Description
The record is a 264-nucleotide part of an RNA from Pedosphaera parvula, which matches "Bacterial large subunit ribosomal RNA" in Rfam. The base pairs follow the family's consensus structure, which is taken from published work.
RNA sequence: GGAAACUUGAGGGGUUCAAACCUUAGUACGAGAGGACCGGGUUUGACGCACUUCUGGUGUGGCAAUUGUUUCGUCAGAAGCAUCGUUGCGUAGCCAUGUGCGGAAGAGAUAAGCGCUGAAAGCAUCUAAGUGCCAAGCUCAUCCCAAGAUAUUGUUUCCCGGAGCUCUAAGCUCCCUAAAGACCCCAUGUAGACCACGUGGUUGAUAGGUUAGGCGUGCAAGCGCUGCAAGGCGUUUAGCGGACUAAUACUAAUCGGUCGUGCG
Numbered sequence: 001g002g003a004a005a006c007u008u009g010a011g012g013g014g015u016u017c018a019a020a021c022c023u024u025a026g027u028a029c030g031a032g033a034g035g036a037c038c039g040g041g042u043u044u045g046a047c048g049c050a051c052u053u054c055u056g057g058u059g060u061g062g063c064a065a066u067u068g069u070u071u072c073g074u075c076a077g078a079a080g081c082a083u084c085g086u087u088g089c090g091u092a093g094c095c096a097u098g099u100g101c102g103g104a105a106g107a108g109a110u111a112a113g114c115g116c117u118g119a120a121a122g123c124a125u126c127u128a129a130g131u132g133c134c135a136a137g138c139u140c141a142u143c144c145c146a147a148g149a150u151a152u153u154g155u156u157u158c159c160c161g162g163a164g165c166u167c168u169a170a171g172c173u174c175c176c177u178a179a180a181g182a183c184c185c186c187a188u189g190u191a192g193a194c195c196a197c198g199u200g201g202u203u204g205a206u207a208g209g210u211u212a213g214g215c216g217u218g219c220a221a222g223c224g225c226u227g228c229a230a231g232g233c234g235u236u237u238a239g240c241g242g243a244c245u246a247a248u249a250c251u252a253a254u255c256g257g258u259c260g261u262g263c264g
Stems, first nucleotide, its partner, number of pairs: 001159006011145004017045007047102005055096003062089005067082006106140003113133005162176001164174001178261001181259004185201005206252003209248005215241002222235005
Dot-bracket structure: ((((((....((((..(((((((...............))))))).(((((...(((....(((((((((((....))))))..)))))....))).)))))...(((....(((((...........)))))....))).))))........))))))..(.(.........).).(..(((((((((.......)))))....((((((((.((.....(((((....)))))....))..))))).)))...)))).)...